[Rfam]
The family of this 493-nucleotide part of an RNA from Vitis vinifera is "Eukaryotic large subunit ribosomal RNA". Pairs were carried over by alignment from the consensus structure, which is taken from published work.

RNA sequence: CCUCCGAAGUUUCCCUCAGGGUAGCUAGAGCUCGCGGGUGAGUUCUAUCGAGUAAAGCCAAUGAUUAGAGGCAUCAAGGGCACAACAUCCUCAACCUAUUCUCAAACUUUAAAUAGGUAGGACGACGUGAUUGCUCCAUUGAGUCGUGCCAUGGAAUCGAGAGCUCCAAGUGGGCCAUUUUUGGUAAGCAGAACUGGCGAUGAGGGAUGAACCGGAAGUCGGGUUACAGUGCCCAACUACGUGCUAACCUAGAACCCAUAAAGGGUGUUGGUCAAUUAAGACAACAGGACUGUGAUCAUAGAAGUCAAAAUCAGCUAAGGAGUGUAUAACAACUCACCUGUCGAAUCAACUAGACCCGAAAAUGGAUGGCGUUGAAGCACACAACCUAUACCUGGCCAUCGAGGCAAGGGCCAGGCCUCGAUGAGUAGGAGGACGUGGCGAUCACUGCAAAACUUGGAGCGCGAGCCCGGACAGAGUGACCGUCGGUGCAGAU
Numbered sequence: 001c002c003u004c005c006g007a008a009g010u011u012u013c014c015c016u017c018a019g020g021g022u023a024g025c026u027a028g029a030g031c032u033c034g035c036g037g038g039u040g041a042g043u044u045c046u047a048u049c050g051a052g053u054a055a056a057g058c059c060a061a062u063g064a065u066u067a068g069a070g071g072c073a074u075c076a077a078g079g080g081c082a083c084a085a086c087a088u089c090c091u092c093a094a095c096c097u098a099u100u101c102u103c104a105a106a107c108u109u110u111a112a113a114u115a116g117g118u119a120g121g122a123c124g125a126c127g128u129g130a131u132u133g134c135u136c137c138a139u140u141g142a143g144u145c146g147u148g149c150c151a152u153g154g155a156a157u158c159g160a161g162a163g164c165u166c167c168a169a170g171u172g173g174g175c176c177a178u179u180u181u182u183g184g185u186a187a188g189c190a191g192a193a194c195u196g197g198c199g200a201u202g203a204g205g206g207a208u209g210a211a212c213c214g215g216a217a218g219u220c221g222g223g224u225u226a227c228a229g230u231g232c233c234c235a236a237c238u239a240c241g242u243g244c245u246a247a248c249c250u251a252g253a254a255c256c257c258a259u260a261a262a263g264g265g266u267g268u269u270g271g272u273c274a275a276u277u278a279a280g281a282c283a284a285c286a287g288g289a290c291u292g293u294g295a296u297c298a299u300a301g302a303a304g305u306c307a308a309a310a311u312c313a314g315c316u317a318a319g320g321a322g323u324g325u326a327u328a329a330c331a332a333c334u335c336a337c338c339u340g341u342c343g344a345a346u347c348a349a350c351u352a353g354a355c356c357c358g359a360a361a362a363u364g365g366a367u368g369g370c371g372u373u374g375a376a377g378c379a380c381a382c383a384a385c386c387u388a389u390a391c392c393u394g395g396c397c398a399u400c401g402a403g404g405c406a407a408g409g410g411c412c413a414g415g416c417c418u419c420g421a422u423g424a425g426u427a428g429g430a431g432g433a434c435g436u437g438g439c440g441a442u443c444a445c446u447g448c449a450a451a452a453c454u455u456g457g458a459g460c461g462c463g464a465g466c467c468c469g470g471a472c473a474g475a476g477u478g479a480c481c482g483u484c485g486g487u488g489c490a491g492a493u
Stems, first nucleotide, its partner, number of pairs: 001432005010023001012021003026168001028166005043122007055110001056108002062104003067099001069097003074094001077091003124150001126148007174198004179193005204213002218396005224390001229385002242379003263357003268353005275346002284341005290314003296308001315319001320335001324333002397423009434488001436485005442479004459466002